[Rfam]
RNA sequence: CGGUCGGUACGGGGGGUCAUUGUAGAAGCGUGUUCGUCGCGACCCCUGCCAGCCCUUUUCAGGGCCGCAAUUCUACA
Numbered sequence: 001c002g003g004u005c006g007g008u009a010c011g012g013g014g015g016g017u018c019a020u021u022g023u024a025g026a027a028g029c030g031u032g033u034u035c036g037u038c039g040c041g042a043c044c045c046c047u048g049c050c051a052g053c054c055c056u057u058u059u060c061a062g063g064g065c066c067g068c069a070a071u072u073c074u075a076c077a
Stems, first nucleotide, its partner, number of pairs: 013046006021077007028040003050067001052065005

About this RNA:
Shown here is a 77-nucleotide RNA sequence from Parnassius apollo, a member of the family "Mammalian CPEB3 ribozyme". NCBI's taxonomy places the organism under Eukaryota, Eumetabola, Endopterygota, Neolepidoptera, Parnassius.